Rfam assigns this 571-nucleotide RNA sequence to the family "ROOL RNA". Firmicutes, Fusobacteria (1 example), Tenericutes (1 example). The family's consensus secondary structure is taken from published work.
RNA sequence: AAUUUUAAACAAUCUACUAGAUAACCAAGUGCAGAGAGGGUGAUACCUUGCUUGGAUUGUGUACAUAAUUCCCGUUACGCUUUUUGUGAGAUAUUGCAGGAAGAUAAGUAACUCUCUUUUCGGGCAAUCGGAAGAGGUCAUGAAGUGAAAGAAGAUUGAGGGUGUACAUAGUAUAGAGAUUGUGCGUAGUUAGACCAUUAUCAUACGGUGGCGGUGACAAUAGACGCUCUCGGUGAGAGAAUGAUCUGGCAAGGCCUUAUGUAGCAGUAAGAACCAACCCAGAAAUGCUAAAAUAAACCGUUUUGCACUUGAGGCUGAGUGAUUGGCCAAUAACACUAAAGAUAAGUACAAGUAGCCCAAAUGUGCAGAUGAACGAUACUGAUAUUGUUAUGCUUAAAACAAAUAUUCUGAAUAUCGGGUGAAAGUUGGACGUAACCAGUCGUGCCUAGCCAUUAAAUCGCUACGGAAGUUAUAGGGUCGCUCCUUAUGGCUCAGACCGUGGUAGGCUAUCGGUCAAUAAAUUGCGUACAGUCGAAGUAGAGCGAAGGCUCAUUUGAUAGAUUGUUUAAAG
Numbered sequence: 001a002a003u004u005u006u007a008a009a010c011a012a013u014c015u016a017c018u019a020g021a022u023a024a025c026c027a028a029g030u031g032c033a034g035a036g037a038g039g040g041u042g043a044u045a046c047c048u049u050g051c052u053u054g055g056a057u058u059g060u061g062u063a064c065a066u067a068a069u070u071c072c073c074g075u076u077a078c079g080c081u082u083u084u085u086g087u088g089a090g091a092u093a094u095u096g097c098a099g100g101a102a103g104a105u106a107a108g109u110a111a112c113u114c115u116c117u118u119u120u121c122g123g124g125c126a127a128u129c130g131g132a133a134g135a136g137g138u139c140a141u142g143a144a145g146u147g148a149a150a151g152a153a154g155a156u157u158g159a160g161g162g163u164g165u166a167c168a169u170a171g172u173a174u175a176g177a178g179a180u181u182g183u184g185c186g187u188a189g190u191u192a193g194a195c196c197a198u199u200a201u202c203a204u205a206c207g208g209u210g211g212c213g214g215u216g217a218c219a220a221u222a223g224a225c226g227c228u229c230u231c232g233g234u235g236a237g238a239g240a241a242u243g244a245u246c247u248g249g250c251a252a253g254g255c256c257u258u259a260u261g262u263a264g265c266a267g268u269a270a271g272a273a274c275c276a277a278c279c280c281a282g283a284a285a286u287g288c289u290a291a292a293a294u295a296a297a298c299c300g301u302u303u304u305g306c307a308c309u310u311g312a313g314g315c316u317g318a319g320u321g322a323u324u325g326g327c328c329a330a331u332a333a334c335a336c337u338a339a340a341g342a343u344a345a346g347u348a349c350a351a352g353u354a355g356c357c358c359a360a361a362u363g364u365g366c367a368g369a370u371g372a373a374c375g376a377u378a379c380u381g382a383u384a385u386u387g388u389u390a391u392g393c394u395u396a397a398a399a400c401a402a403a404u405a406u407u408c409u410g411a412a413u414a415u416c417g418g419g420u421g422a423a424a425g426u427u428g429g430a431c432g433u434a435a436c437c438a439g440u441c442g443u444g445c446c447u448a449g450c451c452a453u454u455a456a457a458u459c460g461c462u463a464c465g466g467a468a469g470u471u472a473u474a475g476g477g478u479c480g481c482u483c484c485u486u487a488u489g490g491c492u493c494a495g496a497c498c499g500u501g502g503u504a505g506g507c508u509a510u511c512g513g514u515c516a517a518u519a520a521a522u523u524g525c526g527u528a529c530a531g532u533c534g535a536a537g538u539a540g541a542g543c544g545a546a547g548g549c550u551c552a553u554u555u556g557a558u559a560g561a562u563u564g565u566u567u568a569a570a571g
Base pairs, nucleotide, nucleotide: 008567009566012563015560018557020555021554025055026054027053028052029051036049037048038047039046057171058170059169060168061167062166074112075111076110077109078108081102082101083100084099085098086097087096088095089094113137114136115135116134117133118132119131120130122129123128139147140146141145181531189523191521196513198345199344200343201342204340207337208336209335210334211301212300213299214298215297228240229239230238231237245283246282247281248280249279256271257270258269259268260267262290263289264288265287304367305366306365307364308363314327315326316325317324318323349425355420356419357418358417360415407496408495409494410493429445447509448508449507459506462502466498469492471489472488473487474486475485476484477483540551541550542549543548